The family of this 79-nucleotide sequence from Anaeroplasma bactoclasticum is "c-di-GMP-I riboswitch aptamer".

RNA sequence: AAAUGAUAAAAGCAAACCCGGUGUAAAUCGGCGACGCAAAGCUAGAGGGCCUUAAUAGGUAAGGCAGCCAGUUACCAUU
Dot-bracket structure: ...........((....(((((....)))))....))..((((...(((((...........)))..))))))......